[Rfam]
RNA sequence: UGACGGAAGAGCACCAUAAGACGUGGAGCUUGCGGCUUAAUUUGACUCAACGCGGGAAAACUUACCAGGUCAAGACAUGGGCGUGAUUGACAGGCUAAUGACUUUUCUCGAUUCCAUGGAUGGUGGUGCAUGGUCGCACUUAGUUGGUGCAGUGAUUUGUCAGGUUUAUUCCGGUAACGAACGAGACCUCGGCCUUGUAAAUAGCUUUGCUGCUUACAGGGACAUUGGCGGCUACGCCAAGGAAGUUCGAGGCAAUUGCAGAUCUGGAAUGCCCUUAGAUGUCCUGGGUCGCACGCGUGCUACAAUGACGCCACGAGCGAGGUUGCGUGACGAAAGUUACGCAUAAUCAGCAGUCGGCGUCUUAAGGGACAGUCUCUUGACACUGUGGGACUCUAACUAGGAAUGUCUCGUAAGCACAAGUCAACAUCUUGUGUUGAUUACGUCCCUGCUCUUUGUACACACCGCCCGUCGCUCCUACCGAUCGAGUGUUUAGAUGAAUUUGAUGGACAUGAGGAAGUCAAAUAAAUCUGAGCACUUAGAGGAAGGAGAAGUCGUAACAAGGUUUCCGUAGGUGAACCUGCAGAAUGAUCCUUC
Numbered sequence: 001u002g003a004c005g006g007a008a009g010a011g012c013a014c015c016a017u018a019a020g021a022c023g024u025g026g027a028g029c030u031u032g033c034g035g036c037u038u039a040a041u042u043u044g045a046c047u048c049a050a051c052g053c054g055g056g057a058a059a060a061c062u063u064a065c066c067a068g069g070u071c072a073a074g075a076c077a078u079g080g081g082c083g084u085g086a087u088u089g090a091c092a093g094g095c096u097a098a099u100g101a102c103u104u105u106u107c108u109c110g111a112u113u114c115c116a117u118g119g120a121u122g123g124u125g126g127u128g129c130a131u132g133g134u135c136g137c138a139c140u141u142a143g144u145u146g147g148u149g150c151a152g153u154g155a156u157u158u159g160u161c162a163g164g165u166u167u168a169u170u171c172c173g174g175u176a177a178c179g180a181a182c183g184a185g186a187c188c189u190c191g192g193c194c195u196u197g198u199a200a201a202u203a204g205c206u207u208u209g210c211u212g213c214u215u216a217c218a219g220g221g222a223c224a225u226u227g228g229c230g231g232c233u234a235c236g237c238c239a240a241g242g243a244a245g246u247u248c249g250a251g252g253c254a255a256u257u258g259c260a261g262a263u264c265u266g267g268a269a270u271g272c273c274c275u276u277a278g279a280u281g282u283c284c285u286g287g288g289u290c291g292c293a294c295g296c297g298u299g300c301u302a303c304a305a306u307g308a309c310g311c312c313a314c315g316a317g318c319g320a321g322g323u324u325g326c327g328u329g330a331c332g333a334a335a336g337u338u339a340c341g342c343a344u345a346a347u348c349a350g351c352a353g354u355c356g357g358c359g360u361c362u363u364a365a366g367g368g369a370c371a372g373u374c375u376c377u378u379g380a381c382a383c384u385g386u387g388g389g390a391c392u393c394u395a396a397c398u399a400g401g402a403a404u405g406u407c408u409c410g411u412a413a414g415c416a417c418a419a420g421u422c423a424a425c426a427u428c429u430u431g432u433g434u435u436g437a438u439u440a441c442g443u444c445c446c447u448g449c450u451c452u453u454u455g456u457a458c459a460c461a462c463c464g465c466c467c468g469u470c471g472c473u474c475c476u477a478c479c480g481a482u483c484g485a486g487u488g489u490u491u492a493g494a495u496g497a498a499u500u501u502g503a504u505g506g507a508c509a510u511g512a513g514g515a516a517g518u519c520a521a522a523u524a525a526a527u528c529u530g531a532g533c534a535c536u537u538a539g540a541g542g543a544a545g546g547a548g549a550a551g552u553c554g555u556a557a558c559a560a561g562g563u564u565u566c567c568g569u570a571g572g573u574g575a576a577c578c579u580g581c582a583g584a585a586u587g588a589u590c591c592u593u594c
Base pairs, nucleotide, nucleotide: 001459002458003456004455005454007453008452009451010450011449012448013447016443017442020407021406022405023404024403025303027301028300029299031297032296033295034294035292036291041056042055043054044053065287066286067285068284069283071281076118077117078116079115080114089107090106092104093103094102122275123274125273126272127271128270131269133263134262135261136259137258138257143182144181145180147178148177149158151156161174163172164171188251189250190249191248193220194219195218197217198216199215200214203211204210205209223242225240226239227238228237229236230235307361308360309359310358311357312356321348324343325342328339329338330337331336366397371392372391373390374389375388376387413435414434415433416432417431418430419429420428462561464558467554468553470551472548473547474546475545476544478542479541482538484537485536486535487534488533489532490531491530492529493528494527495526498523499522500521501520502519503518504517508513564585565584566583568581569580570579571578572577